[Rfam]
Shown here is a 129-nucleotide RNA, a member of the family "U4atac minor spliceosomal RNA". For this family Rfam cites "Computational screen for spliceosomal RNA genes aids in defining the phylogenetic distribution of major and minor spliceosomal components" (Davila Lopez et al., Nucleic Acids Res, 2008). It is one of the family's seed sequences.
RNA sequence: ACCUUCCUUGUCUGGGGGUGGUUUGGGCUGUUCAAUGAAGGUUAACUGAGAACAUCCCUGCUAACACCUAACCAACACAAUCCGCAUCACCUGAACUAUUUUGGUUCGGGCUAUGGUGCAAUUUUUGGA
Numbered sequence: 001a002c003c004u005u006c007c008u009u010g011u012c013u014g015g016g017g018g019u020g021g022u023u024u025g026g027g028c029u030g031u032u033c034a035a036u037g038a039a040g041g042u043u044a045a046c047u048g049a050g051a052a053c054a055u056c057c058c059u060g061c062u063a064a065c066a067c068c069u070a071a072c073c074a075a076c077a078c079a080a081u082c083c084g085c086a087u088c089a090c091c092u093g094a095a096c097u098a099u100u101u102u103g104g105u106u107c108g109g110g111c112u113a114u115g116g117u118g119c120a121a122u123u124u125u126u127g128g129a
Stems, first nucleotide, its partner, number of pairs: 006018004020062003025057003029054001031052003039047002084119006090110008